[Rfam]
RNA sequence: GUGUUUGGGGAUGCAGCAACAUCAAGAUUCACAAGCUAUUUUAAUGGGGAGAGCUUAAUCGGUAGGGUAUUCGAGAGGCUCUUUUUUCAUUUGGGAAUCUUGAUGAUGCUGCAUCAUCAAAUAU
Numbered sequence: 001g002u003g004u005u006u007g008g009g010g011a012u013g014c015a016g017c018a019a020c021a022u023c024a025a026g027a028u029u030c031a032c033a034a035g036c037u038a039u040u041u042u043a044a045u046g047g048g049g050a051g052a053g054c055u056u057a058a059u060c061g062g063u064a065g066g067g068u069a070u071u072c073g074a075g076a077g078g079c080u081c082u083u084u085u086u087u088c089a090u091u092u093g094g095g096a097a098u099c100u101u102g103a104u105g106a107u108g109c110u111g112c113a114u115c116a117u118c119a120a121a122u123a124u
Stems, first nucleotide, its partner, number of pairs: 010115009020105011032093004
Record summary: Rfam assigns this 124-nucleotide RNA sequence from Actinidia chinensis to the family "mir-172 microRNA precursor family". It scores 79 bits against the family's covariance model. NCBI's taxonomy places the organism under Eukaryota, Streptophyta, Streptophytina, Euphyllophyta, Actinidia chinensis.